[Rfam]
RNA sequence: GUCGGGAGUGGGCUAAUACAAGACCCGAAAGGGAAAUACGUCCGGCCCGCUGUGUGGGGUUUCUUAGCUCCCGACACCUAGCC
Numbered sequence: 001g002u003c004g005g006g007a008g009u010g011g012g013c014u015a016a017u018a019c020a021a022g023a024c025c026c027g028a029a030a031g032g033g034a035a036a037u038a039c040g041u042c043c044g045g046c047c048c049g050c051u052g053u054g055u056g057g058g059g060u061u062u063c064u065u066a067g068c069u070c071c072c073g074a075c076a077c078c079u080a081g082c083c
Stems, first nucleotide, its partner, number of pairs: 001075008010043004014038002024033003044061005
This 83-nucleotide RNA sequence from Pseudomonas sp. 1239 belongs to the Rfam family "sRNA-Xcc1". Rfam 15.1 lists 421 matches to the family in 299 species. It scores 70 bits against the family's covariance model. NCBI's taxonomy places the organism under Bacteria, Pseudomonadati, Gammaproteobacteria, Pseudomonadales, Pseudomonas. Rfam classes the family as a small RNA. The base pairs follow the family's consensus structure, which was predicted with RNAalifold.